[Rfam]
RNA: tRNA
Organism: Rheinheimera mesophila
RNA sequence: GCCGAGAUGGUGAAAUUGGUAUACACGCUACCUUGAGGUGGUAGUGCCUUCGGGCGUGCGGGUUCAAGUCCCGCUCUCGGCA
Dot-bracket structure: (((((((..(((...........))).(((((.......))))).............(((((.......)))))))))))).